[Rfam]
RNA sequence: GAAAAUAUGUUGGGGAGCCAAGUGAACUUGGCUGAGAGGAUACUGACUUGUAUCGACCCGUUAACCUGAUCUGGGUAAUGCCAGCGUAGGGAUGGAGACGUCAUACAGAC
Numbered sequence: 001g002a003a004a005a006u007a008u009g010u011u012g013g014g015g016a017g018c019c020a021a022g023u024g025a026a027c028u029u030g031g032c033u034g035a036g037a038g039g040a041u042a043c044u045g046a047c048u049u050g051u052a053u054c055g056a057c058c059c060g061u062u063a064a065c066c067u068g069a070u071c072u073g074g075g076u077a078a079u080g081c082c083a084g085c086g087u088a089g090g091g092a093u094g095g096a097g098a099c100g101u102c103a104u105a106c107a108g109a110c
Stems, first nucleotide, its partner, number of pairs: 006098001008096001010094001011060004017032005039054005065090004071084004
RNA: TPP riboswitch aptamer (THI element)
Organism: Bacillus salinus